[Rfam]
RNA: Selenocysteine transfer RNA
RNA sequence: GGGAGUGGAUGGGUUCUGGUGUUCCUUGCGGUCUUCAAAACCGUUUUGAGGGGUUAGUAGCUUCUUAGGUGGGUUCGAUUCCCACACAUUCCC
Number, nucleotide and partner (000 for none) at each position: 001g093002g092003g091004a090005g089006u088007g087008g085009a000010u000011g026012g025013g024014u000015u000016c021017u000018g000019g000020u000021g016022u000023u000024c013025c012026u011027u000028g044029c043030g042031g041032u040033c000034u000035u000036c000037a000038a000039a000040a032041c031042c030043g029044u028045u000046u000047u067048g066049a065050g064051g063052g000053g000054u000055u000056a000057g000058u000059a000060g000061c000062u000063u051064c050065u049066u048067a047068g000069g000070u084071g083072g082073g081074u000075u000076c000077g000078a000079u000080u000081c073082c072083c071084a070085c008086a000087c007088a006089u005090u004091c003092c002093c001